[Rfam]
The family of this 494-nucleotide part of an RNA from Ophiocordyceps camponoti-rufipedis is "Eukaryotic large subunit ribosomal RNA".
Pairs were carried over by alignment from the consensus structure, which is taken from published work.
The source organism's lineage runs through Eukaryota, Opisthokonta, Ascomycota, Hypocreomycetidae and Ophiocordyceps.

RNA sequence: CCCGCCGAAGUUUCCCUCAGGAUAGCAGUGUCGGCCCUCAGUUUUAUGAGGUAAAGCGAAUGAUUAGGGACCCGGGGGCGCUCUUUAGCCUUCAUCCAUUCUCAAACUUUAAAUAUGUAAGAAGCCCUUGUUGCUUGGCUGAACGUGGGCAUUCGAAUGUAUCGACACUAGUGGGCCAUUUUUGGUAAGCAGAACUGGCGAUGCGGGAUGAACCGAACGCGAGGUUAAGGUGCCGGAGUGGACGCUCAUCAGACACCACAAAAGGCGUUAGUACAUCUUGACAGCAGGACGGUGGCCAUGGAAGUCGGAACCCGCUAAGGACUGUGUAACAACUCACCUGCCGAAUGUACUAGCCCUGAAAAUGGAUGGCGCUCAAGCGUCCCACCCAUACCUCGCCCUCGGGGUUGGAACGAGGCCCCGAGGAGUAGGCGGGCGCGGGGGUCAGUGACGAAGCCCAGGGCGCGAGCCCGGGUCGAACGGCCCCCGGUGCAGAU
Numbered sequence: 001c002c003c004g005c006c007g008a009a010g011u012u013u014c015c016c017u018c019a020g021g022a023u024a025g026c027a028g029u030g031u032c033g034g035c036c037c038u039c040a041g042u043u044u045u046a047u048g049a050g051g052u053a054a055a056g057c058g059a060a061u062g063a064u065u066a067g068g069g070a071c072c073c074g075g076g077g078g079c080g081c082u083c084u085u086u087a088g089c090c091u092u093c094a095u096c097c098a099u100u101c102u103c104a105a106a107c108u109u110u111a112a113a114u115a116u117g118u119a120a121g122a123a124g125c126c127c128u129u130g131u132u133g134c135u136u137g138g139c140u141g142a143a144c145g146u147g148g149g150c151a152u153u154c155g156a157a158u159g160u161a162u163c164g165a166c167a168c169u170a171g172u173g174g175g176c177c178a179u180u181u182u183u184g185g186u187a188a189g190c191a192g193a194a195c196u197g198g199c200g201a202u203g204c205g206g207g208a209u210g211a212a213c214c215g216a217a218c219g220c221g222a223g224g225u226u227a228a229g230g231u232g233c234c235g236g237a238g239u240g241g242a243c244g245c246u247c248a249u250c251a252g253a254c255a256c257c258a259c260a261a262a263a264g265g266c267g268u269u270a271g272u273a274c275a276u277c278u279u280g281a282c283a284g285c286a287g288g289a290c291g292g293u294g295g296c297c298a299u300g301g302a303a304g305u306c307g308g309a310a311c312c313c314g315c316u317a318a319g320g321a322c323u324g325u326g327u328a329a330c331a332a333c334u335c336a337c338c339u340g341c342c343g344a345a346u347g348u349a350c351u352a353g354c355c356c357u358g359a360a361a362a363u364g365g366a367u368g369g370c371g372c373u374c375a376a377g378c379g380u381c382c383c384a385c386c387c388a389u390a391c392c393u394c395g396c397c398c399u400c401g402g403g404g405u406u407g408g409a410a411c412g413a414g415g416c417c418c419c420g421a422g423g424a425g426u427a428g429g430c431g432g433g434c435g436c437g438g439g440g441g442u443c444a445g446u447g448a449c450g451a452a453g454c455c456c457a458g459g460g461c462g463c464g465a466g467c468c469c470g471g472g473u474c475g476a477a478c479g480g481c482c483c484c485c486g487g488u489g490c491a492g493a494u
Stems, first nucleotide, its partner, number of pairs: 001433006011024001013022003027169007042122007054110001055108002061104003066099001068097003074093005124150004129145004175199004180194005204215003219396005225390001229386003238383001240382001243379003263357003267354010284341005290314003296308002315319001320335001324333002397423009434489001436486008445478002453473002459468003

Record summary:
It scores 3121 bits against the family's covariance model.